[Rfam]
RNA sequence: CCCCUGCUUUUCCUCCCUGAGCAGGAGUCUUGCCGUGAUGACAGCGACAAGACUUUUGCGCCCCAGCGCCAUAGCGGCCUGGGGCGAUUUUUCU
Numbered sequence: 001c002c003c004c005u006g007c008u009u010u011u012c013c014u015c016c017c018u019g020a021g022c023a024g025g026a027g028u029c030u031u032g033c034c035g036u037g038a039u040g041a042c043a044g045c046g047a048c049a050a051g052a053c054u055u056u057u058g059c060g061c062c063c064c065a066g067c068g069c070c071a072u073a074g075c076g077g078c079c080u081g082g083g084g085c086g087a088u089u090u091u092u093c094u
Stems, first nucleotide, its partner, number of pairs: 003025006027053006059086008
Dot-bracket structure: ..((((((...........)))))).((((((...............)))))).....((((((((............))))))))........

Rfam assigns this 94-nucleotide RNA sequence from Roseateles aquatilis to the family "Burkholderia RNA 7 (anti-hemB)". The literature on the family includes a 2012 paper in BMC Genomics by Khoo et al., "Computational discovery and RT-PCR validation of novel Burkholderia conserved and Burkholderia pseudomallei unique sRNAs". The family's consensus secondary structure is taken from published work. Rfam's curators write: This RNA motif was identified by computational search in b-proteobacteria Burkholderia. Co-purified with Hfq, expression confirmed by Northern blot. It scores 52 bits against the family's covariance model. Taxonomically the source falls in Roseateles (Bacteria, Pseudomonadota, Betaproteobacteria, Burkholderiales).